[Rfam]
RNA sequence: GGAAUAUAAGAACCCGACUCUUAAUUUUUAACUGAAAAUGCUAAGAGUCGGUUCUUAUUUUAAAAGCCGACUCUUAGUAUUUUCAGUUAAAAAUUAAAAAUCGGAUUUUUAUAUUCC
Numbered sequence: 001g002g003a004a005u006a007u008a009a010g011a012a013c014c015c016g017a018c019u020c021u022u023a024a025u026u027u028u029u030a031a032c033u034g035a036a037a038a039u040g041c042u043a044a045g046a047g048u049c050g051g052u053u054c055u056u057a058u059u060u061u062a063a064a065a066g067c068c069g070a071c072u073c074u075u076a077g078u079a080u081u082u083u084c085a086g087u088u089a090a091a092a093a094u095u096a097a098a099a100a101u102c103g104g105a106u107u108u109u110u111a112u113a114u115u116c117c
Stems, first nucleotide, its partner, number of pairs: 001117012014104004019099001021097019041077007

MIR9563 microRNA precursor family: a 117-nucleotide RNA from Brassica oleracea.
Gene Ontology terms of the family: RISC complex and miRNA-mediated post-transcriptional gene silencing.
Rfam 15.1 lists 5,832 matches to the family in 9 species.
Lineage of the source: Eukaryota > Magnoliopsida > eudicotyledons > malvids > Brassica oleracea.
It scores 98 bits against the family's covariance model.